[Rfam]
RNA sequence: CAUUGUUCUGAUCAUUUCAGAUCAGCUAUUAGGAGAGAAAGAUCAGACAAGUCCUUUGGAUCUGAUCGGAUUAAUACAGAAGCUACUGAUUACUAUAUCGUUGGCCUAACUCUCUCCGAAACAAUGAAAUACACAAGUUAUUUCUUGGCCUUUCAGCUCUGCAUCAUU
Numbered sequence: 001c002a003u004u005g006u007u008c009u010g011a012u013c014a015u016u017u018c019a020g021a022u023c024a025g026c027u028a029u030u031a032g033g034a035g036a037g038a039a040a041g042a043u044c045a046g047a048c049a050a051g052u053c054c055u056u057u058g059g060a061u062c063u064g065a066u067c068g069g070a071u072u073a074a075u076a077c078a079g080a081a082g083c084u085a086c087u088g089a090u091u092a093c094u095a096u097a098u099c100g101u102u103g104g105c106c107u108a109a110c111u112c113u114c115u116c117c118g119a120a121a122c123a124a125u126g127a128a129a130u131a132c133a134c135a136a137g138u139u140a141u142u143u144c145u146u147g148g149c150c151u152u153u154c155a156g157c158u159c160u161g162c163a164u165c166a167u168u
Stems, first nucleotide, its partner, number of pairs: 008069007015119002019113003025105004032099002035096001041091006050084003055080004120168002124164003129143001131141001133139001147158003
RNA: Interferon gamma 5' UTR regulatory element
Organism: Sciurus carolinensis